[Rfam]
Nucleotides: 177
Base pairs, nucleotide, nucleotide: 006051007050008049009048010047011046013044016041017040018039019038021036022035023034024033025032026031055100056099057098058097059096060095063084064083065082066081067080113141114140115139116138117137118136119135120134121133122132123131124130150174151173152172153171154170155169157167159165
Number, partner (000 for none) and nucleotide at each position: 001000c002000c003000a004000u005000u006051g007050c008049c009048g010047g011046c012000u013044g014000c015000g016041g017040g018039c019038c020000u021036a022035u023034u024033g025032g026031a027000u028000c029000u030000u031026u032025c033024c034023a035022g036021u037000u038019g039018g040017u041016u042000c043000a044013c045000u046011g047010u048009c049008g050007g051006c052000g053000u054000c055100g056099g057098c058097g059096g060095g061000a062000a063084c064083g065082a066081c067080a068000u069000u070000u071000a072000u073000c074000a075000c076000a077000g078000c079000g080067u081066g082065u083064c084063g085000c086000g087000u088000g089000c090000c091000c092000g093000a094000a095060c096059c097058c098057g099056c100055c101000a102000u103000u104000u105000a106000c107000u108000c109000c110000u111000u112000u113141g114140c115139c116138u117137a118136c119135u120134c121133c122132u123131a124130c125000u126000c127000a128000c129000c130124g131123u132122a133121g134120g135119g136118g137117u138116a139115g140114g141113c142000c143000u144000u145000u146000u147000u148000c149000u150174c151173c152172u153171a154170c155169c156000u157167g158000c159165u160000c161000g162000g163000u164000g165159a166000g167157c168000u169155g170154g171153u172152a173151g174150g175000u176000u177000a
Rfam assigns this 177-nucleotide RNA sequence from Orthohepacivirus hominis to the family "Hepatitis C virus (HCV) cis-acting replication element (CRE)". On this family, see Pirakitikulr et al., Mol Cell 2016: "The Coding Region of the HCV Genome Contains a Network of Regulatory RNA Structures". Lineage of the source: Viruses > Kitrinoviricota > Flasuviricetes > Hepaciviridae > Orthohepacivirus. The family's consensus secondary structure was predicted with RNAfold.